Rfam assigns this 58-nucleotide RNA from Salmo salar to the family "mir-7132 microRNA precursor family". NCBI's taxonomy places the organism under Eukaryota, Metazoa, Clupeocephala, Salmoninae, Salmo. Its family is annotated with miRNA-mediated post-transcriptional gene silencing and RISC complex in the Gene Ontology.
RNA sequence: GACUUGGUCAAAGCUCCUCAGUGAUGAGUAGAAACCUGAGAAGUUUGGAACAAGUAAA
Numbered sequence: 001g002a003c004u005u006g007g008u009c010a011a012a013g014c015u016c017c018u019c020a021g022u023g024a025u026g027a028g029u030a031g032a033a034a035c036c037u038g039a040g041a042a043g044u045u046u047g048g049a050a051c052a053a054g055u056a057a058a
Base pairs, nucleotide, nucleotide: 002055003054004053005052006051008049009048011046012045013044014043015042017040018039019038020037021036023035
Dot-bracket structure: .(((((.((.(((((.(((((.(...........)))))).))))).)).)))))...